The record is a 228-nucleotide RNA from Bacillus methanolicus, which matches "T-box leader" in Rfam. The source organism's lineage runs through Bacteria, Bacillota, Bacilli, Bacillus and Bacillus methanolicus. The match comes from Rfam's covariance-model search (123 bits).
Nucleotides: 228
Base pairs, nucleotide, nucleotide: 007103008102015098016097017096018095025086026085027084028083029082030081039075040074041073050072051071052070053069054068055067105134107132108131109130110129111128136148137147138146166188167187168186169185170184171183172182193225194224195223196222204221205220206219207218208217
Number, partner (000 for none) and nucleotide at each position: 001000a002000u003000a004000u005000u006000g007103a008102c009000g010000a011000u012000g013000a014000c015098a016097g017096g018095g019000a020000c021000a022000g023000u024000a025086c026085a027084g028083u029082u030081u031000c032000c033000a034000u035000g036000c037000c038000u039075u040074g041073u042000u043000u044000c045000a046000g047000c048000g049000a050072a051071c052070c053069g054068g055067g056000g057000g058000a059000g060000g061000u062000g063000g064000g065000a066000g067055c068054c069053c070052g071051g072050u073041a074040u075039a076000a077000g078000c079000g080000g081030a082029a083028a084027u085026u086025g087000g088000a089000a090000g091000a092000u093000c094000a095018c096017c097016c098015u099000u100000g101000a102008g103007u104000u105134c106000c107132g108131a109130a110129u111128c112000g113000a114000a115000c116000g117000c118000g119000c120000u121000g122000c123000c124000a125000g126000u127000a128111g129110a130109u131108u132107c133000a134105g135000g136148c137147g138146u139000u140000u141000c142000a143000u144000u145000c146138a147137c148136g149000u150000u151000a152000c153000g154000a155000a156000u157000g158000u159000c160000u161000g162000a163000g164000c165000g166188g167187a168186c169185a170184g171183a172182a173000u174000u175000u176000u177000u178000c179000u180000u181000g182172u183171u184170c185169u186168g187167u188166c189000u190000a191000c192000a193225a194224g195223g196222g197000u198000g199000g200000u201000a202000c203000c204221g205220c206219g207218g208217g209000a210000a211000a212000a213000c214000c215000u216000u217208c218207u219206c220205g221204u222196c223195c224194c225193u226000u227000a228000u